[Rfam]
RNA sequence: AGAGCGGUUUCGUAAUGCCUGGUAACCUUGGCCACUCGGAGAGUGGACCUAGCUGGCGCUGAGAUGCGCCGGGCGAGACUGAAAUCGGGGCCCAGGGUAAGACCGCUGG
Numbered sequence: 001a002g003a004g005c006g007g008u009u010u011c012g013u014a015a016u017g018c019c020u021g022g023u024a025a026c027c028u029u030g031g032c033c034a035c036u037c038g039g040a041g042a043g044u045g046g047a048c049c050u051a052g053c054u055g056g057c058g059c060u061g062a063g064a065u066g067c068g069c070c071g072g073g074c075g076a077g078a079c080u081g082a083a084a085u086c087g088g089g090g091c092c093c094a095g096g097g098u099a100a101g102a103c104c105g106c107u108g109g
Base pairs, nucleotide, nucleotide: 003107004106005105006104007103009102010100012098018096019095020094021093022092026090027089028088033045034044035043036042037041053072054071055070056069057068058067059066
RNA: DUF3800-III RNA